RNA sequence: GAAGGAUGUUCGGUCCUUCGGAGCCGCCUUUCGGGAGGAGGCUUCAAACCGCCCUCCGCUGCGUUACUGAGGUUGAACUCGUGGUGUCGUGAGGGCUGACGGUUCGUCGCUGGU
Numbered sequence: 001g002a003a004g005g006a007u008g009u010u011c012g013g014u015c016c017u018u019c020g021g022a023g024c025c026g027c028c029u030u031u032c033g034g035g036a037g038g039a040g041g042c043u044u045c046a047a048a049c050c051g052c053c054c055u056c057c058g059c060u061g062c063g064u065u066a067c068u069g070a071g072g073u074u075g076a077a078c079u080c081g082u083g084g085u086g087u088c089g090u091g092a093g094g095g096c097u098g099a100c101g102g103u104u105c106g107u108c109g110c111u112g113g114u
Base pairs, nucleotide, nucleotide: 001019002018003017004016005015006014007013020045021044022043023042024041025040027038028037029036030035052095053094054093055092056091058085059084061082062081063080065077067075106114

About this RNA: The family of this 114-nucleotide sequence from Streptomyces sp. PT12 is "Group II catalytic intron D1-D4-2". Taxonomically the source falls in Streptomyces (Bacteria, Actinomycetota, Actinomycetes, Streptomycetaceae). About the family: Group II introns are found in rRNA, tRNA and mRNA of organelles in fungi, plants and protists, and also in mRNA in bacteria. A reference for the family is Chu et al. (2001), "Control of branch-site choice by a group II intron", EMBO J.